[Rfam]
RNA: mir-30 microRNA precursor family
Organism: Taeniopygia guttata
RNA sequence: AGUGCCUCUGUAAACAUCCUUGACUGGAAGCUGGAAGGGCUGGAAGGAGCUUUCAGUCGGAUGUUUACAGCAGCAGG
Numbered sequence: 001a002g003u004g005c006c007u008c009u010g011u012a013a014a015c016a017u018c019c020u021u022g023a024c025u026g027g028a029a030g031c032u033g034g035a036a037g038g039g040c041u042g043g044a045a046g047g048a049g050c051u052u053u054c055a056g057u058c059g060g061a062u063g064u065u066u067a068c069a070g071c072a073g074c075a076g077g
Base pairs, nucleotide, nucleotide: 003075004074005073008070009069010068011067012066013065014064015063016062017061018060019059023057024056025055026054027053028052029051030050031049032048